[Rfam]
RNA: SAM riboswitch aptamer (S box leader)
RNA sequence: ACACCAUCCAGAGCGGUCGAGAGUCCUGGCUCGUCGACGCCGCAGCAACCCCCCACAAUGGAAGCCUCCUGAGGGUGCGGGUGCUAACGCCAGGUCCGAUGGAGU
Numbered sequence: 001a002c003a004c005c006a007u008c009c010a011g012a013g014c015g016g017u018c019g020a021g022a023g024u025c026c027u028g029g030c031u032c033g034u035c036g037a038c039g040c041c042g043c044a045g046c047a048a049c050c051c052c053c054c055a056c057a058a059u060g061g062a063a064g065c066c067u068c069c070u071g072a073g074g075g076u077g078c079g080g081g082u083g084c085u086a087a088c089g090c091c092a093g094g095u096c097c098g099a100u101g102g103a104g105u
Stems, first nucleotide, its partner, number of pairs: 001105002004102005013043005021032003026093004044085004049081002051077001053075002089097001